[Rfam]
RNA sequence: GCGGCGGUAGCUCAGUGGUAGAGCAGCGGGCUGCAGUCCCCAAACUCGUGGUUCCUGAAGGUCACCAGUUCAAUUCUGGUUCGCCGCU
Numbered sequence: 001g002c003g004g005c006g007g008u009a010g011c012u013c014a015g016u017g018g019u020a021g022a023g024c025a026g027c028g029g030g031c032u033g034c035a036g037u038c039c040c041c042a043a044a045c046u047c048g049u050g051g052u053u054c055c056u057g058a059a060g061g062u063c064a065c066c067a068g069u070u071c072a073a074u075u076c077u078g079g080u081u082c083g084c085c086g087c088u
Stems, first nucleotide, its partner, number of pairs: 001087007010024004027057004064080005
Annotation:
tRNA: an 88-nucleotide RNA sequence from Bimuria novae-zelandiae. Its family is annotated with triplet codon-amino acid adaptor activity in the Gene Ontology. Lineage of the source: Eukaryota > dothideomyceta > Pleosporales > Didymosphaeriaceae > Bimuria novae-zelandiae.